[Rfam]
RNA sequence: AAAAUAAUUUAUAUGACUCAUAUAAUCUAGAGAAUAUGGCUUUAGAAGUUUCUACCGUGUCGCCAUAAACGACACGACUAUGAGUAACAAUCCAAUACAU
Numbered sequence: 001a002a003a004a005u006a007a008u009u010u011a012u013a014u015g016a017c018u019c020a021u022a023u024a025a026u027c028u029a030g031a032g033a034a035u036a037u038g039g040c041u042u043u044a045g046a047a048g049u050u051u052c053u054a055c056c057g058u059g060u061c062g063c064c065a066u067a068a069a070c071g072a073c074a075c076g077a078c079u080a081u082g083a084g085u086a087a088c089a090a091u092c093c094a095a096u097a098c099a100u
Stems, first nucleotide, its partner, number of pairs: 016085007026047001028045001030043003056076007
Shown here is a 100-nucleotide RNA sequence from Staphylococcus epidermidis, a member of the family "Purine riboswitch aptamer". Gene Ontology term of the family: purine nucleobase biosynthetic process. Rfam's curators put it in the seed alignment. The base pairs follow the family's consensus structure, which is taken from published work.